[Rfam]
A member of the RNA family "mir-160 microRNA precursor family" from Lupinus angustifolius, 86 nucleotides long. Rfam 15.1 lists 1,502 matches to the family in 247 species. A reference for the family is Rhoades et al. (2002), "Prediction of plant microRNA targets", Cell.
RNA sequence: AUAUGCUUGGCUCCAUAUACGCCAUCCACGGAAGCCAUUAAAGUUCCAAUGAGCUCUGAAGAUGGCAUAUAGGGAGCCAGGCAUAU
Numbered sequence: 001a002u003a004u005g006c007u008u009g010g011c012u013c014c015a016u017a018u019a020c021g022c023c024a025u026c027c028a029c030g031g032a033a034g035c036c037a038u039u040a041a042a043g044u045u046c047c048a049a050u051g052a053g054c055u056c057u058g059a060a061g062a063u064g065g066c067a068u069a070u071a072g073g074g075a076g077c078c079a080g081g082c083a084u085a086u
Stems, first nucleotide, its partner, number of pairs: 001086006008079007016071004021066004029058001